Shown here is an 87-nucleotide RNA sequence from Python bivittatus, a member of the family "mir-1684 microRNA precursor family". Its family is annotated with RISC complex and miRNA-mediated post-transcriptional gene silencing in the Gene Ontology. The family has 2 seed sequences and 120 matches in Rfam 15.1. Lineage of the source: Eukaryota > Amniota > Unidentata > Toxicofera > Python.
[Rfam]
RNA sequence: UUGUAUAAAUGAGUCCCAUAUUUCAUUAUACUUGUCCAUAUACUUUAUAUGGACAAGUAUAAUGAAAUAUGGGACUCAUUUAUACAA
Numbered sequence: 001u002u003g004u005a006u007a008a009a010u011g012a013g014u015c016c017c018a019u020a021u022u023u024c025a026u027u028a029u030a031c032u033u034g035u036c037c038a039u040a041u042a043c044u045u046u047a048u049a050u051g052g053a054c055a056a057g058u059a060u061a062a063u064g065a066a067a068u069a070u071g072g073g074a075c076u077c078a079u080u081u082a083u084a085c086a087a
Stems, first nucleotide, its partner, number of pairs: 002086002006082015022066010033055002036052004